A member of the RNA family "MIR6217 microRNA precursor family" from Miscanthus lutarioriparius, 226 nucleotides long.
It scores 140 bits against the family's covariance model.
Rfam links the family to the GO terms miRNA-mediated post-transcriptional gene silencing and RISC complex.
RNA sequence: UGACGCAGAAUAAAUUAUUCUGUGGCCACUUUCAGUUACGAUAAUUACUAUAUUAAUUUAUGAGAUUAUGGUAACUCCCUCUUAAGUGAUUUACUAUAGUAUUAUGGUAAGUAUCAUCUUAAAUUAUAGUGACACAUGUAUCGUAAAUGUGUAUUGUCAUUAUCGUAAAUUGCUAUAAACAUUAUCGUAAAUCAAGGUGGCCAUAGAAUAAGUUAUUCUGUGGCCA
Numbered sequence: 001u002g003a004c005g006c007a008g009a010a011u012a013a014a015u016u017a018u019u020c021u022g023u024g025g026c027c028a029c030u031u032u033c034a035g036u037u038a039c040g041a042u043a044a045u046u047a048c049u050a051u052a053u054u055a056a057u058u059u060a061u062g063a064g065a066u067u068a069u070g071g072u073a074a075c076u077c078c079c080u081c082u083u084a085a086g087u088g089a090u091u092u093a094c095u096a097u098a099g100u101a102u103u104a105u106g107g108u109a110a111g112u113a114u115c116a117u118c119u120u121a122a123a124u125u126a127u128a129g130u131g132a133c134a135c136a137u138g139u140a141u142c143g144u145a146a147a148u149g150u151g152u153a154u155u156g157u158c159a160u161u162a163u164c165g166u167a168a169a170u171u172g173c174u175a176u177a178a179a180c181a182u183u184a185u186c187g188u189a190a191a192u193c194a195a196g197g198u199g200g201c202c203a204u205a206g207a208a209u210a211a212g213u214u215a216u217u218c219u220g221u222g223g224c225c226a
Stems, first nucleotide, its partner, number of pairs: 002224001004222010015211018036190010049177004054172008064164003068160003073154001080145001082143001086141003091136001092131009102121001107115001